[Rfam]
RNA sequence: UUUAUAUAUCAGCAAAGCCGGAGCAAUCCGGUGACGCAAAGCUAUAGGGUCUUUAUGAGACAGCCAGUUGCAUUU
Numbered sequence: 001u002u003u004a005u006a007u008a009u010c011a012g013c014a015a016a017g018c019c020g021g022a023g024c025a026a027u028c029c030g031g032u033g034a035c036g037c038a039a040a041g042c043u044a045u046a047g048g049g050u051c052u053u054u055a056u057g058a059g060a061c062a063g064c065c066a067g068u069u070g071c072a073u074u075u
Stems, first nucleotide, its partner, number of pairs: 012037002017032006040069004047065002049061003
Rfam assigns this 75-nucleotide RNA sequence from Butyrivibrio sp. Su6 to the family "c-di-GMP-I riboswitch aptamer".
Rfam's curators write: GEMM was predicted in a large-scale screen for bacterial structured RNA regulatory elements.